MIR397 microRNA precursor family: a 101-nucleotide sequence from Vigna radiata. Gene Ontology terms of the family: RISC complex and miRNA-mediated post-transcriptional gene silencing. The family has 7 seed sequences and 496 matches in Rfam 15.1.
RNA sequence: CAGAGAAACAUCAUUGAGUGCAGCGUUGAUGAAGUUUCUCUCUCACUUGUGUUCUCAGGCAUAUGAAAUUGUCAUCGACACUGCAUUCAAUCAUGUUUUUC
Numbered sequence: 001c002a003g004a005g006a007a008a009c010a011u012c013a014u015u016g017a018g019u020g021c022a023g024c025g026u027u028g029a030u031g032a033a034g035u036u037u038c039u040c041u042c043u044c045a046c047u048u049g050u051g052u053u054c055u056c057a058g059g060c061a062u063a064u065g066a067a068a069u070u071g072u073c074a075u076c077g078a079c080a081c082u083g084c085a086u087u088c089a090a091u092c093a094u095g096u097u098u099u100u101c
Base pairs, nucleotide, nucleotide: 006098007097008096009095010094011093013091014090015089016088017087018086019085020084021083022082023081025079026078027077028076030074031073032072
Notes:
The literature on the family includes a 2009 paper in BMC Genomics by Mica et al., "High throughput approaches reveal splicing of primary microRNA transcripts and tissue specific expression of mature microRNAs in Vitis vinifera".